[Rfam]
RNA sequence: AUUCUUACCUGGCAGGGGAGAUGAUAUGAUCAGGAAUGUGGUUUUCCCAGGGCGAGGCUCAUCCCUUGUACUCCGUAGGUGUGAUUACCCCUGUGAUUUCCCCAAAUGCAGGAAACUCGACUGCAUAAUUUGUGAUAGUGAGGAAGUGCAUUCCUGCUUUCCCCUG
Dot-bracket structure: ...........((((((((((.(.(((..........))).)))))))((((.(.(.(.(((.(..........)...))).).)..))))).((((((.(.........).))).))).))))...............(.((.(..(((....)))..))).)..
The record is a 166-nucleotide sequence from Mandrillus leucophaeus, which matches "U1 spliceosomal RNA" in Rfam. The family's consensus secondary structure is taken from published work. U1 is a small nuclear RNA (snRNA) component of the spliceosome (involved in pre-mRNA splicing). Its 5' end forms complementary base pairs with the 5' splice junction, thus defining the 5' donor site of an intron. There are significant differences in sequence and secondary structure between metazoan and yeast U1 snRNAs, the latter being much longer (568 nucleotides as compared to 164 nucleotides in human). Nevertheless, secondary structure predictions suggest that all U1 snRNAs share a 'common core' consisting of helices I, II, the proximal region of III, and IV. This family does not contain the larger yeast sequences. It is annotated as a spliceosomal small nuclear RNA. The family has 100 seed sequences and 40,184 matches in Rfam 15.1.